[Rfam]
RNA sequence: ACCAGUCGAAGGCCGAGGCCUUCUUACCUCCCUGUUGGACUAUGGCCGAGCUUUAUGCUCGGCCUUUUUU
Numbered sequence: 001a002c003c004a005g006u007c008g009a010a011g012g013c014c015g016a017g018g019c020c021u022u023c024u025u026a027c028c029u030c031c032c033u034g035u036u037g038g039a040c041u042a043u044g045g046c047c048g049a050g051c052u053u054u055a056u057g058c059u060c061g062g063c064c065u066u067u068u069u070u
Base pairs, nucleotide, nucleotide: 008023009022010021011020012019013018044064045063046062047061048060049059050058051057
RNA: Singlet oxygen resistance RNA X
Organism: Pontibaca methylaminivorans